[Rfam]
RNA sequence: AGUGAUGGUAGAGGAGCAAAAACCAAUAGUAGGCAACCGGAAGAGAAGGAGCUCUUAUGACGGUGGCUGAAAGGGGAUUUUUGCCGAAGCUUUAGGAAACUUCCUUUUUCUUAAGGCUGGACCUGCAUUGAAUAAAUGCAGGGCUGUCACACAUUCCUUGCCCGGAGGAUGUGUGGAGGACUAUCUCACAU
Number, nucleotide and partner (000 for none) at each position: 001a000002g000003u000004g000005a000006u000007g185008g184009u183010a182011g181012a000013g000014g000015a000016g084017c083018a082019a081020a080021a079022a000023c076024c075025a000026a000027u000028a000029g000030u000031a000032g068033g067034c066035a000036a064037c063038c062039g061040g000041a000042a000043g000044a000045g000046a000047a000048g000049g000050a000051g000052c000053u000054c000055u000056u000057a000058u000059g000060a000061c039062g038063g037064u036065g000066g034067c033068u032069g000070a000071a000072a000073g000074g000075g024076g023077a000078u000079u021080u020081u019082u018083g017084c016085c000086g000087a000088a118089g117090c116091u115092u114093u113094a112095g111096g110097a109098a108099a107100c000101u000102u000103c000104c000105u000106u000107u099108u098109u097110c096111u095112u094113a093114a092115g091116g090117c089118u088119g145120g144121a000122c142123c141124u140125g139126c138127a137128u136129u135130g000131a000132a000133u000134a000135a129136a128137u127138g126139c125140a124141g123142g122143g000144c120145u119146g000147u176148c175149a174150c173151a172152c171153a170154u169155u168156c167157c000158u000159u000160g000161c000162c000163c000164g000165g000166a000167g156168g155169a154170u153171g152172u151173g150174u149175g148176g147177a000178g000179g000180a000181c011182u010183a009184u008185c007186u000187c000188a000189c000190a000191u000

Description
The family of this 191-nucleotide RNA sequence from Fictibacillus enclensis is "Lysine riboswitch aptamer". Riboswitches are metabolite binding domains within certain messenger RNAs that serve as precision sensors for their corresponding targets. Taxonomically the source falls in Fictibacillus (Bacteria, Bacillati, Bacillota, Bacilli).